The family of this 157-nucleotide sequence from Streptomyces sp. MS191 is "c-di-AMP riboswitch aptamer (ydaO/yuaA leader)". The pairing is the family consensus, mapped onto this sequence.
Nucleotides: 157
Base pairs, nucleotide, nucleotide: 003028004027005026029137030136031135032134033133034132039075076122077121078120084099085098086097087096102116103115104114105113
Number, partner (000 for none) and nucleotide at each position: 001000a002000a003028u004027u005026c006000g007000c008000a009000c010000c011000c012000a013000c014000c015000c016000a017000c018000g019000u020000g021000u022000g023000g024000c025000a026005g027004g028003a029137g030136c031135g032134g033133g034132g035000g036000a037000c038000c039075c040000a041000g042000g043000u044000a045000g046000u047000a048000c049000g050000c051000c052000g053000a054000u055000c056000c057000u058000c059000c060000a061000g062000g063000u064000c065000a066000g067000g068000a069000c070000g071000g072000c073000u074000c075039g076122g077121g078120g079000u080000g081000a082000a083000g084099u085098c086097g087096c088000g089000u090000g091000a092000a093000g094000g095000c096087g097086c098085g099084a100000c101000c102116g103115g104114a105113c106000a107000u108000c109000u110000c111000c112000a113105g114104u115103c116102c117000g118000a119000a120078c121077c122076c123000g124000a125000c126000a127000g128000c129000u130000c131000a132034c133033c134032u135031c136030g137029c138000a139000g140000g141000c142000g143000a144000c145000g146000g147000a148000g149000a150000g151000g152000a153000a154000u155000u156000c157000g